[Rfam]
RNA: c-di-AMP riboswitch aptamer (ydaO/yuaA leader)
Organism: Mangrovactinospora gilvigrisea
RNA sequence: CGCGAUGCAUCGCCGAAUCCCGCGAGGGAGCCGGGGAACCACCGUUCCCACACCUGGUGAACAUGGGGUGAAUCGGCCCGCAAGGGCCGUAGGAGACCUUCCUGCUCCGAACCCGUCAGCUAACCCGGUAGGCGAGAAGGAAGGAAAGG
Numbered sequence: 001c002g003c004g005a006u007g008c009a010u011c012g013c014c015g016a017a018u019c020c021c022g023c024g025a026g027g028g029a030g031c032c033g034g035g036g037a038a039c040c041a042c043c044g045u046u047c048c049c050a051c052a053c054c055u056g057g058u059g060a061a062c063a064u065g066g067g068g069u070g071a072a073u074c075g076g077c078c079c080g081c082a083a084g085g086g087c088c089g090u091a092g093g094a095g096a097c098c099u100u101c102c103u104g105c106u107c108c109g110a111a112c113c114c115g116u117c118a119g120c121u122a123a124c125c126c127g128g129u130a131g132g133c134g135a136g137a138a139g140g141a142a143g144g145a146a147a148g149g
Stems, first nucleotide, its partner, number of pairs: 011134004018029003030129006040065002066114003074089004092108004